A member of the RNA family "small nucleolar RNA snoR143" from Salvia splendens, 188 nucleotides long. Rfam classes the family as an H/ACA-box small nucleolar RNA. Its family is annotated with RNA processing and nucleolus in the Gene Ontology. It scores 109 bits against the family's covariance model. On this family, see Chen and Wu, Nucleic Acids Res 2009: "Mining small RNA sequencing data: a new approach to identify small nucleolar RNAs in Arabidopsis".
RNA sequence: UCGCACUACGCUUAAAAGGCUGCGCCAAUAUUGUUAAAAACAAUAAAGGAAUGGAGUAGUCUCUGAGCAAUUGUGCGGAAAUGAAAUGCCGAGUUAAGCUCGGCGGCGGCCAGACAACCGUUGAGAUGGAUCCACAGAUCAGCGCCGCCGUUUCUACGGUGCUUGUCUACUAAAUCCAUAUCAAAUUC
Numbered sequence: 001u002c003g004c005a006c007u008a009c010g011c012u013u014a015a016a017a018g019g020c021u022g023c024g025c026c027a028a029u030a031u032u033g034u035u036a037a038a039a040a041c042a043a044u045a046a047a048g049g050a051a052u053g054g055a056g057u058a059g060u061c062u063c064u065g066a067g068c069a070a071u072u073g074u075g076c077g078g079a080a081a082u083g084a085a086a087u088g089c090c091g092a093g094u095u096a097a098g099c100u101c102g103g104c105g106g107c108g109g110c111c112a113g114a115c116a117a118c119c120g121u122u123g124a125g126a127u128g129g130a131u132c133c134a135c136a137g138a139u140c141a142g143c144g145c146c147g148c149c150g151u152u153u154c155u156a157c158g159g160u161g162c163u164u165g166u167c168u169a170c171u172a173a174a175u176c177c178a179u180a181u182c183a184a185a186u187u188c
Stems, first nucleotide, its partner, number of pairs: 002077005010068002013066001015064001017062007025054003123182002126179005140165003143161003